[Rfam]
RNA sequence: CUCAAGGAAGCGCUUUGUCCACGUCAGCACAAAGCGAGCCCUUAAGGAUGCGUUUUGUGAUGACAUAGACAAAGCGCUUCCUUGAGG
Numbered sequence: 001c002u003c004a005a006g007g008a009a010g011c012g013c014u015u016u017g018u019c020c021a022c023g024u025c026a027g028c029a030c031a032a033a034g035c036g037a038g039c040c041c042u043u044a045a046g047g048a049u050g051c052g053u054u055u056u057g058u059g060a061u062g063a064c065a066u067a068g069a070c071a072a073a074g075c076g077c078u079u080c081c082u083u084g085a086g087g
Stems, first nucleotide, its partner, number of pairs: 001086019021066001023064004028059009038049001040047002

Notes: The family of this 87-nucleotide RNA sequence from Gossypium stocksii is "MIR7486 microRNA precursor family". The base pairs follow the family's consensus structure, which was predicted with RNAalifold. It scores 78 bits against the family's covariance model.